[Rfam]
RNA sequence: ACACGAGAAGGGAGGUGGUUCGGCAGAUGUAUGACAACCGGACGCGUGAGGUGGCUGCGGGCUAGCGGCCUGUCACCACACUCGGUGCGGUGCCGGACCAGUGCGUGAAUUGAACGCGCAGCCGGCCCAAUCUCAAGCAGUCACCCGACCCGUGGGCUCGCCGGUACGUCCGGCCGGCUUCUCCGUCGUUGAGAUGGGGGACCUGAGCUCGCGGGUCGUCUGCG
Numbered sequence: 001a002c003a004c005g006a007g008a009a010g011g012g013a014g015g016u017g018g019u020u021c022g023g024c025a026g027a028u029g030u031a032u033g034a035c036a037a038c039c040g041g042a043c044g045c046g047u048g049a050g051g052u053g054g055c056u057g058c059g060g061g062c063u064a065g066c067g068g069c070c071u072g073u074c075a076c077c078a079c080a081c082u083c084g085g086u087g088c089g090g091u092g093c094c095g096g097a098c099c100a101g102u103g104c105g106u107g108a109a110u111u112g113a114a115c116g117c118g119c120a121g122c123c124g125g126c127c128c129a130a131u132c133u134c135a136a137g138c139a140g141u142c143a144c145c146c147g148a149c150c151c152g153u154g155g156g157c158u159c160g161c162c163g164g165u166a167c168g169u170c171c172g173g174c175c176g177g178c179u180u181c182u183c184c185g186u187c188g189u190u191g192a193g194a195u196g197g198g199g200g201a202c203c204u205g206a207g208c209u210c211g212c213g214g215g216u217c218g219u220c221u222g223c224g
Stems, first nucleotide, its partner, number of pairs: 015058005060127004065122002068119002071116001073113003146218013160178006
A member of the RNA family "Actinobacteria sRNA Ms_IGR-5" from Streptomyces ipomoeae, 224 nucleotides long. The organism belongs to Streptomyces ipomoeae, within Bacteria. By type it is a small RNA. The match comes from Rfam's covariance-model search (92 bits). The pairing is the family consensus, mapped onto this sequence.